Rfam assigns this 100-nucleotide RNA from Clostridium sartagoforme to the family "Purine riboswitch aptamer". Lineage of the source: Bacteria > Bacillota > Clostridia > Eubacteriales > Clostridium. Its family is annotated with purine nucleobase biosynthetic process in the Gene Ontology. It scores 77 bits against the family's covariance model. The base pairs follow the family's consensus structure, which is taken from published work.
RNA sequence: UUAUCAAUAAUUACAAAGCUUCGUAUAACCCUAAUAAUAUGGUUUAGGGGUCUCUACCAAGGACCGAUAAUUCUUGAUUACGAAGAAGUCACUUUGCGUG
Numbered sequence: 001u002u003a004u005c006a007a008u009a010a011u012u013a014c015a016a017a018g019c020u021u022c023g024u025a026u027a028a029c030c031c032u033a034a035u036a037a038u039a040u041g042g043u044u045u046a047g048g049g050g051u052c053u054c055u056a057c058c059a060a061g062g063a064c065c066g067a068u069a070a071u072u073c074u075u076g077a078u079u080a081c082g083a084a085g086a087a088g089u090c091a092c093u094u095u096g097c098g099u100g
Base pairs, nucleotide, nucleotide: 019085020084021083022082023081024080025079029049030048031047032046033045034044058076059075060074061073062072063071